[Rfam]
RNA sequence: UAAUGAAGAUACAAAAAGAGCCGAGCAGCAACUCGACUCUAAUGUAGACCGUUGAAAAGACGGUGGCAGUUAUUAGUGUAUUAAUAA
Dot-bracket structure: .....................((((......))))............((((((.....)))))).......................